[Rfam]
RNA sequence: UCAGACGGCUGGAUGACCGCGCGCCUGCGUAAAGCAGGAUCGGGCGAGGAAAGUCCGGGCUCCACGGACGAACGGUGCCGGCUAACGGCCGGCGGGGGCGACCCCAGGGACAGUGGCACAGAAAGCAAACCGCCCCGGACUUGAUCCGGGGUAAGGGUGAAAGGGUGCGGUAAGAGCGCACCGCGCGGCCAGCAAUGGUCGUGGCAGGCAAAACCCCACCGGGAGCAAGAUCGAAUAGGGGUGGCUCGAAGCCUUGAGCUUCAGACGUGUCCGCGUCGCCGCCCGGGUGGAUCGCGUGAGGCGCGGAGUAAUCCGCGUCCCAGAGGAAUGGUCAUCCACUCUCUUCGGAGGGGGACAGAACCCGGCUUACAGGCCGUCUGACGCC
Numbered sequence: 001u002c003a004g005a006c007g008g009c010u011g012g013a014u015g016a017c018c019g020c021g022c023g024c025c026u027g028c029g030u031a032a033a034g035c036a037g038g039a040u041c042g043g044g045c046g047a048g049g050a051a052a053g054u055c056c057g058g059g060c061u062c063c064a065c066g067g068a069c070g071a072a073c074g075g076u077g078c079c080g081g082c083u084a085a086c087g088g089c090c091g092g093c094g095g096g097g098g099c100g101a102c103c104c105c106a107g108g109g110a111c112a113g114u115g116g117c118a119c120a121g122a123a124a125g126c127a128a129a130c131c132g133c134c135c136c137g138g139a140c141u142u143g144a145u146c147c148g149g150g151g152u153a154a155g156g157g158u159g160a161a162a163g164g165g166u167g168c169g170g171u172a173a174g175a176g177c178g179c180a181c182c183g184c185g186c187g188g189c190c191a192g193c194a195a196u197g198g199u200c201g202u203g204g205c206a207g208g209c210a211a212a213a214c215c216c217c218a219c220c221g222g223g224a225g226c227a228a229g230a231u232c233g234a235a236u237a238g239g240g241g242u243g244g245c246u247c248g249a250a251g252c253c254u255u256g257a258g259c260u261u262c263a264g265a266c267g268u269g270u271c272c273g274c275g276u277c278g279c280c281g282c283c284c285g286g287g288u289g290g291a292u293c294g295c296g297u298g299a300g301g302c303g304c305g306g307a308g309u310a311a312u313c314c315g316c317g318u319c320c321c322a323g324a325g326g327a328a329u330g331g332u333c334a335u336c337c338a339c340u341c342u343c344u345u346c347g348g349a350g351g352g353g354g355a356c357a358g359a360a361c362c363c364g365g366c367u368u369a370c371a372g373g374c375c376g377u378c379u380g381a382c383g384c385c
Stems, first nucleotide, its partner, number of pairs: 001381010011370001012336007020046003024042001028038001051368003055365005060225004070270001073221005078092005093107001094105004108216002113214002116209002130156002132152008164182006183205001184203008229293004239284006264277005300319008
The record is a 385-nucleotide sequence from Roseiterribacter gracilis, which matches "Bacterial RNase P class A" in Rfam. The organism belongs to Roseiterribacter, within Bacteria. Rfam describes the family as follows. Ribonuclease P (RNase P) is a ubiquitous endoribonuclease, found in archaea, bacteria and eukarya as well as chloroplasts and mitochondria. Its best characterised activity is the generation of mature 5'-ends of tRNAs by cleaving the 5'-leader elements of precursor-tRNAs. Cellular RNase Ps are ribonucleoproteins. RNA from bacterial RNase Ps retains its catalytic activity in the absence of the protein subunit, i.e. it is a ribozyme. Isolated eukaryotic and archaeal RNase P RNA has not been shown to retain its catalytic function, but is still essential for the catalytic activity of the holoenzyme. Although the archaeal and eukaryotic holoenzyme s have a much greater protein content than the bacterial ones, the RNA cores from all the three lineages are homologous -- helices corresponding to P1, P2, P3, P4, and P10/11 are common to all cellular RNase P RNAs. Yet, there is considerable sequence variation, particularly among the eukaryotic RNAs. Identified in Yersinia as Ysr151/RnpB. Pairs were carried over by alignment from the consensus structure, which is taken from published work. A search with the family's covariance model found it, with a score of 297 bits.